[Rfam]
RNA: PAGEV RNA
RNA sequence: CGGGGCUUGGAUCAUGAUGCUGUGGGCCCCGCCAGCGUUGAACUGGUGAUCACGGGGAUCUCCAUACACCAGUCGGUAUAGCCAUCAAAGUCUGAAAGUAGGCCGUCGGGGGUGCUCACCUUAGCCCGUCGCUCCGAAUUUUAUGAGGACGAUGAUGCUGCACGCCGUGGAGGGGUAAGCUGAGUCAGGCAGCUUAGAAUGUGCAGACGCCG
Numbered sequence: 001c002g003g004g005g006c007u008u009g010g011a012u013c014a015u016g017a018u019g020c021u022g023u024g025g026g027c028c029c030c031g032c033c034a035g036c037g038u039u040g041a042a043c044u045g046g047u048g049a050u051c052a053c054g055g056g057g058a059u060c061u062c063c064a065u066a067c068a069c070c071a072g073u074c075g076g077u078a079u080a081g082c083c084a085u086c087a088a089a090g091u092c093u094g095a096a097a098g099u100a101g102g103c104c105g106u107c108g109g110g111g112g113u114g115c116u117c118a119c120c121u122u123a124g125c126c127c128g129u130c131g132c133u134c135c136g137a138a139u140u141u142u143a144u145g146a147g148g149a150c151g152a153u154g155a156u157g158c159u160g161c162a163c164g165c166c167g168u169g170g171a172g173g174g175g176u177a178a179g180c181u182g183a184g185u186c187a188g189g190c191a192g193c194u195u196a197g198a199a200u201g202u203g204c205a206g207a208c209g210c211c212g
Base pairs, nucleotide, nucleotide: 001031002030003029004028005027006026007025042073043072044071045070046069047068061171062170063169064168065167083157084156085155086154087153090150091149092148158206159205160204161203162202163201176196177195178194179193180192181191